[Rfam]
RNA sequence: AGAGUCCCAGGGAAUGGGGUUUCCCUUUAACCGCCCGUCGUGGGCUGAUGACUCCUGCCGAUCG
Numbered sequence: 001a002g003a004g005u006c007c008c009a010g011g012g013a014a015u016g017g018g019g020u021u022u023c024c025c026u027u028u029a030a031c032c033g034c035c036c037g038u039c040g041u042g043g044g045c046u047g048a049u050g051a052c053u054c055c056u057g058c059c060g061a062u063c064g
Base pairs, nucleotide, nucleotide: 010025011024012023013022016055017054018053019052020051021050033045034044035043036042

The family of this 64-nucleotide RNA sequence from Lichenicoccus roseus is "Fluoride riboswitch aptamer (crcB RNA motif)".
The match comes from Rfam's covariance-model search (59 bits).